[Rfam]
RNA sequence: ACAUUCCAUGCGUAUUCGAUAAGCCGGCAAUAAAAAAGCAGAUUAGUUUCCACUACUCUGGGCUUUUUUGUGCUGCUUAUUUUUACGCGUGUAGACAUAGAUUGCGAUAAGGAUGGCUUUUUUUGCCAUGCCUUUUAUCGCCGUGUUCUUAUUCGUGAUGAAUGCAGACCAACUGCCCUCAAGGUGGAUUUGGAUCUGUAUUUUUUAU
Numbered sequence: 001a002c003a004u005u006c007c008a009u010g011c012g013u014a015u016u017c018g019a020u021a022a023g024c025c026g027g028c029a030a031u032a033a034a035a036a037a038g039c040a041g042a043u044u045a046g047u048u049u050c051c052a053c054u055a056c057u058c059u060g061g062g063c064u065u066u067u068u069u070g071u072g073c074u075g076c077u078u079a080u081u082u083u084u085a086c087g088c089g090u091g092u093a094g095a096c097a098u099a100g101a102u103u104g105c106g107a108u109a110a111g112g113a114u115g116g117c118u119u120u121u122u123u124u125g126c127c128a129u130g131c132c133u134u135u136u137a138u139c140g141c142c143g144u145g146u147u148c149u150u151a152u153u154c155g156u157g158a159u160g161a162a163u164g165c166a167g168a169c170c171a172a173c174u175g176c177c178c179u180c181a182a183g184g185u186g187g188a189u190u191u192g193g194a195u196c197u198g199u200a201u202u203u204u205u206u207a208u
Stems, first nucleotide, its partner, number of pairs: 004094002007091007018081007027074001030071010045059002096145003104141008113133001115127003162201006169193002172190001174188001176186001178184002

Source information:
Enterococcus sRNA 1300: a 208-nucleotide RNA from Paenibacillus macerans. Taxonomically the source falls in Paenibacillus (Bacteria, Bacilli, Caryophanales, Paenibacillaceae). It is annotated as a small RNA. From the family's description: Expressed in mid and late exponential phases of growth. Expression remained uniform under daptomycin exposure.